[Rfam]
RNA sequence: ACGCAGCUCCGGGCCCCUCUGGCGAAAGCUUCCGACCCACUUCGUGAUGUCGGGCUGCAAA
Numbered sequence: 001a002c003g004c005a006g007c008u009c010c011g012g013g014c015c016c017c018u019c020u021g022g023c024g025a026a027a028g029c030u031u032c033c034g035a036c037c038c039a040c041u042u043c044g045u046g047a048u049g050u051c052g053g054g055c056u057g058c059a060a061a
Stems, first nucleotide, its partner, number of pairs: 006055002009053004022045004027041002